[Rfam]
RNA sequence: CGCGGUCCUCGGUAGUGGUCUCCGGGACGUCCCACUUGGGAACGUCCCGUGGACCUCGAUCGAAGACCGGG
Number, nucleotide and partner (000 for none) at each position: 001c071002g000003c069004g068005g067006u066007c065008c000009u063010c062011g061012g060013u059014a000015g000016u000017g055018g054019u053020c052021u051022c000023c049024g048025g047026g046027a045028c044029g043030u000031c000032c000033c000034a000035c000036u000037u000038g000039g000040g000041a000042a000043c029044g028045u027046c026047c025048c024049g023050u000051g021052g020053a019054c018055c017056u000057c000058g000059a013060u012061c011062g010063a009064a000065g007066a006067c005068c004069g003070g000071g001